[Rfam]
RNA sequence: UGUAUUCUUCGGGGCAGGGUGUAAUUCCCGACCGGCGGUGACAAGUCAUCAGAACUUGAAGUCCGUGACCCGCUUUUAUGCGGUGGAUCUAGUGAGAAUCUAGAGCCGACAGUAAUAGUCUGGAUGGGAGAAGAAUAGC
Numbered sequence: 001u002g003u004a005u006u007c008u009u010c011g012g013g014g015c016a017g018g019g020u021g022u023a024a025u026u027c028c029c030g031a032c033c034g035g036c037g038g039u040g041a042c043a044a045g046u047c048a049u050c051a052g053a054a055c056u057u058g059a060a061g062u063c064c065g066u067g068a069c070c071c072g073c074u075u076u077u078a079u080g081c082g083g084u085g086g087a088u089c090u091a092g093u094g095a096g097a098a099u100c101u102a103g104a105g106c107c108g109a110c111a112g113u114a115a116u117a118g119u120c121u122g123g124a125u126g127g128g129a130g131a132a133g134a135a136u137a138g139c
Base pairs, nucleotide, nucleotide: 003137004136005135006134007133008132009131010130017029018028019027031119032118033108034107035066036065037064038063061106062105070083071082088104089103090102091101092100110122111121112120

The family of this 139-nucleotide sequence from Oceanobacillus iheyensis is "FMN riboswitch aptamer (RFN element)". Rfam's curators write: The RFN element is a highly conserved domain that is found frequently in the 5'-untranslated regions of prokaryotic mRNAs that encode for flavin mononucleotide (FMN) biosynthesis and transport proteins. This element is a metabolite-dependent riboswitch that directly binds FMN in the absence of proteins. Its family is annotated with FMN binding in the Gene Ontology. Pairs were carried over by alignment from the consensus structure, which is taken from published work. It is one of the family's seed sequences. The literature on the family includes a 2002 paper in Nucleic Acids Res by Vitreschak et al., "Regulation of riboflavin biosynthesis and transport genes in bacteria by transcriptional and translational attenuation". The organism belongs to Oceanobacillus iheyensis, within Bacteria.